[Rfam]
RNA: mir-2 microRNA precursor family
Organism: Aplysia californica
RNA sequence: CCUGACGUCAAGGCGGUUGUGAUGUGGUGACACCAUGAGCAUAUCACAGCCAGCUUUGAUGACAGGGA
Numbered sequence: 001c002c003u004g005a006c007g008u009c010a011a012g013g014c015g016g017u018u019g020u021g022a023u024g025u026g027g028u029g030a031c032a033c034c035a036u037g038a039g040c041a042u043a044u045c046a047c048a049g050c051c052a053g054c055u056u057u058g059a060u061g062a063c064a065g066g067g068a
Base pairs, nucleotide, nucleotide: 006061007060008059009058010057011056012055013054015051016050017049018048019047020046021045022044025043026042